[Rfam]
RNA: Archaeal large subunit ribosomal RNA, nucleotides 10 to 569
Organism: Candidatus Methanogaster sp.
RNA sequence: GUAAUUAUACCGUUUGGUGGAUAGUUCGGCUCAAGUGCUGAUGAAGGACGUGCCAAGCUGCGAUAAGCCCAGGCGAGGCGCAUGGAGCCAUUGAACCUGGGAUCUCCGAAUGAGACUUCUUGAUGUGACGCGAGUCACAUCGAUCCUUCGGGAUCGGGAACGCUCCGAAUUGAAACAUCUCAGUAGGGGCAGGAAAAGAAAUCAAUUGAGAUGCUGUGAGUAACGGCGAGUGAAAACAGCAGAGUUCAAACCGAAUCUUUCCUCGAAAGAGGAUAGACAUGUGGUGUUGUGAGGCAGAUCAUAUACAGUCCAAACUGGUGAAGUCGAACUCAUCUGGAACGUUGGGGCAUAGAGCGUGAUAGCCGCGUAGACGUAAACCAGUGGAUCGUGAUCUGAUCCUCGAGUACCGUGGGUCGGAAAUCCCGCGGAAAUCCGGGAGACAUCAACUUCCAAAACUAAAUACAACUUGAGACCGAUAGCAGAGUAGUACCGUGAGGGAAUACUGAAAAGCAUCCAAAAGAUGGAGGUUAAAAGUGCUUGAAACCAAAUGGUGAUAGUGG
Dot-bracket structure: .......((((((((((.....(((..((((((((((........((((((........))).....((((((...(((.......)))......))))))...)))....(((....))).....................((((....))))......((((((.....((....))......))))).).........((....))...(((((.....((.....))....)))))..((((....(((.......((((....)))).........)))..........((((.........(((............(((...(.((.(......).)))..(...).(((.......)))...)))...........))).....))))...........(((((((........)))))))......(((((.......)))))..)))).....)).)))))).))...............((....))....))..................................).....)))))))))).......